[Rfam]
Background
RNase MRP: a 280-nucleotide RNA sequence from Adiantum capillus-veneris. It scores 62 bits against the family's covariance model.
RNA sequence: GGGCAAGGAAGGAGGAGUGCUUCGGCUUCCCUCCUGCCUCAUGCAGGCGGGCCGAGUGAAAGUCCCCGAGUUAGGGGGCCGCCUAUAGGGGCGAGGCCUCCUUGCACAGAAAUGUGAGCCUGAAAGGGUAGACCUCCUUCCAUUUGGCGUUAGCUGGAUACUUGGGGCGGAGACAAGUGUGGAGCCCCUUUCCACUGGAACGUCAUACCGGGGAGCAGCUGACUAUACCACAGUCAUGCACUCUCGCUUGCAACAGAACGGGGCUUACUCCCUCCUUGCC
Numbered sequence: 001g002g003g004c005a006a007g008g009a010a011g012g013a014g015g016a017g018u019g020c021u022u023c024g025g026c027u028u029c030c031c032u033c034c035u036g037c038c039u040c041a042u043g044c045a046g047g048c049g050g051g052c053c054g055a056g057u058g059a060a061a062g063u064c065c066c067c068g069a070g071u072u073a074g075g076g077g078g079c080c081g082c083c084u085a086u087a088g089g090g091g092c093g094a095g096g097c098c099u100c101c102u103u104g105c106a107c108a109g110a111a112a113u114g115u116g117a118g119c120c121u122g123a124a125a126g127g128g129u130a131g132a133c134c135u136c137c138u139u140c141c142a143u144u145u146g147g148c149g150u151u152a153g154c155u156g157g158a159u160a161c162u163u164g165g166g167g168c169g170g171a172g173a174c175a176a177g178u179g180u181g182g183a184g185c186c187c188c189u190u191u192c193c194a195c196u197g198g199a200a201c202g203u204c205a206u207a208c209c210g211g212g213g214a215g216c217a218g219c220u221g222a223c224u225a226u227a228c229c230a231c232a233g234u235c236a237u238g239c240a241c242u243c244u245c246g247c248u249u250g251c252a253a254c255a256g257a258a259c260g261g262g263g264c265u266u267a268c269u270c271c272c273u274c275c276u277u278g279c280c
Stems, first nucleotide, its partner, number of pairs: 002280008011272002015243006021056007060266003064263004105116004118129004131204003138200005156190001165187004175180001245250001
Pairs were carried over by alignment from the consensus structure, which is taken from published work. Gene Ontology terms of the family: ribonuclease MRP complex, ribonuclease MRP activity and rRNA processing. The family is grouped with related families in Rfam's "RNaseP clan".